[Rfam]
RNA sequence: UACAUUUGCGCCUGAAUUGUACGGGUUGUAUAAUUCAUUACAUAAUAAUCAUUUAAAGAAUAUUGGCAUG
Numbered sequence: 001u002a003c004a005u006u007u008g009c010g011c012c013u014g015a016a017u018u019g020u021a022c023g024g025g026u027u028g029u030a031u032a033a034u035u036c037a038u039u040a041c042a043u044a045a046u047a048a049u050c051a052u053u054u055a056a057a058g059a060a061u062a063u064u065g066g067c068a069u070g
Stems, first nucleotide, its partner, number of pairs: 014036010
The record is a 70-nucleotide RNA sequence from Myroides guanonis, which matches "S15-Flavobacteria ribosomal protein leader" in Rfam. Lineage of the source: Bacteria > Bacteroidota > Flavobacteriia > Flavobacteriales > Myroides.